Stem loopII regulatory element in POLB: an 87-nucleotide RNA from Heterocephalus glaber.
The match comes from Rfam's covariance-model search (82 bits).

RNA sequence: AGCCCAAGAGAACUCUUAAUUUAUUCCUUAAUCUUUGCUAUGCAAGAUUCUUUGAUAUUUUUAAAUGAUUGUUUUUUUCUUAAUGCU
Numbered sequence: 001a002g003c004c005c006a007a008g009a010g011a012a013c014u015c016u017u018a019a020u021u022u023a024u025u026c027c028u029u030a031a032u033c034u035u036u037g038c039u040a041u042g043c044a045a046g047a048u049u050c051u052u053u054g055a056u057a058u059u060u061u062u063a064a065a066u067g068a069u070u071g072u073u074u075u076u077u078u079c080u081u082a083a084u085g086c087u
Base pairs, nucleotide, nucleotide: 009080010079011078012077016064017063018062019061025055026054031049034046035045036044037043038042
Lineage of the source: Eukaryota > Chordata > Glires > Bathyergidae > Heterocephalus.
The family's RNA type in Rfam is cis-regulatory element.